[Rfam]
RNA: TPP riboswitch aptamer (THI element)
Organism: Rubricella aquisinus
RNA sequence: ACGCCUGCCUCGGGGGGCCCAAAUGGGCUGAGAUGCGUGAUGCAGACCCGUUGAACCUGAACCGGAUUAUGCCGGCGUAGGGAAGGCUGCAUUCGCCCCG
Numbered sequence: 001a002c003g004c005c006u007g008c009c010u011c012g013g014g015g016g017g018c019c020c021a022a023a024u025g026g027g028c029u030g031a032g033a034u035g036c037g038u039g040a041u042g043c044a045g046a047c048c049c050g051u052u053g054a055a056c057c058u059g060a061a062c063c064g065g066a067u068u069a070u071g072c073c074g075g076c077g078u079a080g081g082g083a084a085g086g087c088u089g090c091a092u093u094c095g096c097c098c099c100g
Base pairs, nucleotide, nucleotide: 007087008086009085010084011050012049013048014047017028018027019026020025035043036042037041056081057080058079059078062075063074064073065072